[Rfam]
RNA sequence: UUCUUAUCCAGAGAGAUCGAGGGAUCUGGCCCUAUGACAUCUCAGCAACCUGUCGCUGACAAGGUGCUCCGUCCAGCAGAAUUUCAUUCUGAAAGAUAAGAA
Numbered sequence: 001u002u003c004u005u006a007u008c009c010a011g012a013g014a015g016a017u018c019g020a021g022g023g024a025u026c027u028g029g030c031c032c033u034a035u036g037a038c039a040u041c042u043c044a045g046c047a048a049c050c051u052g053u054c055g056c057u058g059a060c061a062a063g064g065u066g067c068u069c070c071g072u073c074c075a076g077c078a079g080a081a082u083u084u085c086a087u088u089c090u091g092a093a094a095g096a097u098a099a100g101a102a
Stems, first nucleotide, its partner, number of pairs: 001102008013043005021032003026076004044068004049064002051061004072094001077091006

A member of the RNA family "SAM riboswitch aptamer (S box leader)" from Brevibacillus fulvus, 102 nucleotides long.